[Rfam]
Shown here is a 493-nucleotide part of an RNA from Aspergillus bombycis, a member of the family "Eukaryotic large subunit ribosomal RNA". On this family, see Yusupov et al., Science 2001: "Crystal structure of the ribosome at 5.5 A resolution". Taxonomically the source falls in Aspergillus (Eukaryota, Fungi, leotiomyceta, Eurotiomycetidae).

RNA sequence: CCUGCCGAAGUUUCCCUCAGGAUAGCAGUAACGCGUUUCAGUUUUAUGAGGUAAAGCGAAUGAUUAGAGGCAUUGGGGUUGAAACAACCUUAACCUAUUCUCAAACUUUAAAUAUGUAAGAAGCCCUUGUUUCUUAGUUGAACGUGGGCAUUAGAAUGGAGCGUUACUAGUGGGCCAUUUUUGGUAAGCAGAACUGGCGAUGCGGGAUGAACCGAACGCGAGGUUAAGGUGCCGGAAUGCACGCUCAUCAGACACCACAAAAGGUGUUAGUUCAUCUAGACAGCCCGACGGUGGCCAUGGAAGUCGGAAUCCGCUAAGGAGUGUGUAACAACUCACGGGCCGAAUGAACUAGCCCUGAAAAUGGAUGGCGCUCAAGCGUGUUACCCAUACCUCGCCGCCGGGGUAGAAACGAUGCCCCGGCGAGUAGGCAGGCGUGGGGGUCCGUGACGAAGCCUUGGGAGUGAUCCCGGGUCGAACGGCCCCUAGUGCAGAU
Numbered sequence: 001c002c003u004g005c006c007g008a009a010g011u012u013u014c015c016c017u018c019a020g021g022a023u024a025g026c027a028g029u030a031a032c033g034c035g036u037u038u039c040a041g042u043u044u045u046a047u048g049a050g051g052u053a054a055a056g057c058g059a060a061u062g063a064u065u066a067g068a069g070g071c072a073u074u075g076g077g078g079u080u081g082a083a084a085c086a087a088c089c090u091u092a093a094c095c096u097a098u099u100c101u102c103a104a105a106c107u108u109u110a111a112a113u114a115u116g117u118a119a120g121a122a123g124c125c126c127u128u129g130u131u132u133c134u135u136a137g138u139u140g141a142a143c144g145u146g147g148g149c150a151u152u153a154g155a156a157u158g159g160a161g162c163g164u165u166a167c168u169a170g171u172g173g174g175c176c177a178u179u180u181u182u183g184g185u186a187a188g189c190a191g192a193a194c195u196g197g198c199g200a201u202g203c204g205g206g207a208u209g210a211a212c213c214g215a216a217c218g219c220g221a222g223g224u225u226a227a228g229g230u231g232c233c234g235g236a237a238u239g240c241a242c243g244c245u246c247a248u249c250a251g252a253c254a255c256c257a258c259a260a261a262a263g264g265u266g267u268u269a270g271u272u273c274a275u276c277u278a279g280a281c282a283g284c285c286c287g288a289c290g291g292u293g294g295c296c297a298u299g300g301a302a303g304u305c306g307g308a309a310u311c312c313g314c315u316a317a318g319g320a321g322u323g324u325g326u327a328a329c330a331a332c333u334c335a336c337g338g339g340c341c342g343a344a345u346g347a348a349c350u351a352g353c354c355c356u357g358a359a360a361a362u363g364g365a366u367g368g369c370g371c372u373c374a375a376g377c378g379u380g381u382u383a384c385c386c387a388u389a390c391c392u393c394g395c396c397g398c399c400g401g402g403g404u405a406g407a408a409a410c411g412a413u414g415c416c417c418c419g420g421c422g423a424g425u426a427g428g429c430a431g432g433c434g435u436g437g438g439g440g441u442c443c444g445u446g447a448c449g450a451a452g453c454c455u456u457g458g459g460a461g462u463g464a465u466c467c468c469g470g471g472u473c474g475a476a477c478g479g480c481c482c483c484u485a486g487u488g489c490a491g492a493u
Stems, first nucleotide, its partner, number of pairs: 001432006011024001013022003027168007042121007054109001055107002061103003066098001068096003073093006080086001123149004128144004174198004179193005203214003218395005224389001228385003237382001239381001242378003262356003266353010283340005289313003295307002314318001319334001323332002396422009433488001435485008444477002452472002458467003